[Rfam]
RNA sequence: ACAGAAGCAUGUGACUGACGGAAGUGGAGCUACCACGGGGAGCAUGGUUCAUUACAGCCGACCGUCUGGGCGAAGGUU
Numbered sequence: 001a002c003a004g005a006a007g008c009a010u011g012u013g014a015c016u017g018a019c020g021g022a023a024g025u026g027g028a029g030c031u032a033c034c035a036c037g038g039g040g041a042g043c044a045u046g047g048u049u050c051a052u053u054a055c056a057g058c059c060g061a062c063c064g065u066c067u068g069g070g071c072g073a074a075g076g077u078u
Base pairs, nucleotide, nucleotide: 004050005049006048008046009045010044011043012042015039016038017066018065019064020063021062024036025035026034027033057071058070059069
ZMP/ZTP riboswitch aptamer (pfl RNA motif): a 78-nucleotide RNA sequence from Megasphaera sp. An286. The match comes from Rfam's covariance-model search (58 bits).